c-di-GMP-I riboswitch aptamer: an 85-nucleotide sequence from Thalassotalea sp. LPB0316. Pairs were carried over by alignment from the consensus structure, which is taken from published work. It scores 63 bits against the family's covariance model.
RNA sequence: CAUCAGAAACGGCAAGGUUCUUGAAAAAGUUCCACGCAAAGCCACCGGUCUAAGGAUAUAAAUCUAAGAUAGCGGGGUCGCCUGA
Number, nucleotide and partner (000 for none) at each position: 001c000002a000003u000004c000005a000006g000007a000008a000009a000010c000011g000012g037013c036014a000015a000016g000017g032018u000019u000020c029021u028022u027023g000024a000025a000026a000027a022028a021029g020030u000031u000032c017033c000034a000035c000036g013037c012038a000039a000040a000041g078042c077043c076044a000045c075046c074047g073048g070049u069050c068051u000052a000053a000054g000055g064056a063057u062058a000059u000060a000061a000062a057063u056064c055065u000066a000067a000068g050069a049070u048071a000072g000073c047074g046075g045076g043077g042078u041079c000080g000081c000082c000083u000084g000085a000
Background
The organism belongs to Thalassotalea, within Bacteria.